[Rfam]
RNA: Group II catalytic intron D1-D4-1
RNA sequence: AACCAUGGUUGAAACAAGAUUUGUCAUGAGAAGUCAGCAGAAGCCAUAGUACUAUGAGAAUCUAGAUAUCAUAGGAAGGGC
Numbered sequence: 001a002a003c004c005a006u007g008g009u010u011g012a013a014a015c016a017a018g019a020u021u022u023g024u025c026a027u028g029a030g031a032a033g034u035c036a037g038c039a040g041a042a043g044c045c046a047u048a049g050u051a052c053u054a055u056g057a058g059a060a061u062c063u064a065g066a067u068a069u070c071a072u073a074g075g076a077a078g079g080g081c
Stems, first nucleotide, its partner, number of pairs: 001020001004018001006016002009013001034041002043081003052074006